Record summary
The record is a 114-nucleotide RNA sequence from Sandaracinobacter neustonicus, which matches "ALIL pseudoknot" in Rfam. Its family is annotated with positive regulation of translational frameshifting in the Gene Ontology. Rfam classes the family as a cis-regulatory element. The base pairs follow the family's consensus structure, which is taken from published work.

RNA sequence: CGCUUUUGCCCAGGCGGAGUUCGACCGCCCAUUCAAGCGACGACCAGCUUCAUUGAUGAGGAUCGGGAUGAGUCUGGGGUCGAGCCGAUCUGCCGGGUUCUGCCGAUCGCCCCA
Numbered sequence: 001c002g003c004u005u006u007u008g009c010c011c012a013g014g015c016g017g018a019g020u021u022c023g024a025c026c027g028c029c030c031a032u033u034c035a036a037g038c039g040a041c042g043a044c045c046a047g048c049u050u051c052a053u054u055g056a057u058g059a060g061g062a063u064c065g066g067g068a069u070g071a072g073u074c075u076g077g078g079g080u081c082g083a084g085c086c087g088a089u090c091u092g093c094c095g096g097g098u099u100c101u102g103c104c105g106a107u108c109g110c111c112c113c114a
Stems, first nucleotide, its partner, number of pairs: 013029005075114005086109002089106002092103002095100001